[Rfam]
RNA sequence: CUGCCAUGAUGGCAGUAUUUUUUUGUCAACAGCAGUUCACCUAGUGAGUGCUGAUACUCUGAGUCUGAGUGA
Numbered sequence: 001c002u003g004c005c006a007u008g009a010u011g012g013c014a015g016u017a018u019u020u021u022u023u024u025g026u027c028a029a030c031a032g033c034a035g036u037u038c039a040c041c042u043a044g045u046g047a048g049u050g051c052u053g054a055u056a057c058u059c060u061g062a063g064u065c066u067g068a069g070u071g072a
Stems, first nucleotide, its partner, number of pairs: 002071003008027004
Rfam assigns this 72-nucleotide RNA sequence from Odobenus rosmarus to the family "Small nucleolar RNA SNORD56". The family has 7 seed sequences and 796 matches in Rfam 15.1. For this family Rfam cites "Purified box C/D snoRNPs are able to reproduce site-specific 2'-O-methylation of target RNA in vitro" (Galardi et al., Mol Cell Biol, 2002). It scores 78 bits against the family's covariance model. It is annotated as a C/D-box small nucleolar RNA. Gene Ontology terms of the family: nucleolus and RNA processing. The organism belongs to Odobenus rosmarus, within Eukaryota.